Overview
A member of the RNA family "mir-1388 microRNA precursor family" from Lepisosteus oculatus, 92 nucleotides long. Its family is annotated with miRNA-mediated post-transcriptional gene silencing and RISC complex in the Gene Ontology. For this family Rfam cites "The genome of a songbird" (Warren et al., Nature, 2010). Taxonomically the source falls in Lepisosteus (Eukaryota, Opisthokonta, Holostei, Lepisosteidae).
RNA sequence: UUCAGAGAGGUGUUUCCAGGACUGUCUAACCUGAGAAUGGUAAAAUCAAUGCUCAAUCUCAGGUUCGUCAGCCCAUGAAACGCUUUCUCAAU
Dot-bracket structure: ....((((((((((((..((.(((.(.(((((((((.((..............)).))))))))).).))).))..))))))))).)))...
Numbered sequence: 001u002u003c004a005g006a007g008a009g010g011u012g013u014u015u016c017c018a019g020g021a022c023u024g025u026c027u028a029a030c031c032u033g034a035g036a037a038u039g040g041u042a043a044a045a046u047c048a049a050u051g052c053u054c055a056a057u058c059u060c061a062g063g064u065u066c067g068u069c070a071g072c073c074c075a076u077g078a079a080a081c082g083c084u085u086u087c088u089c090a091a092u
Stems, first nucleotide, its partner, number of pairs: 005089003008085009019074002022071003026067001028065009038055002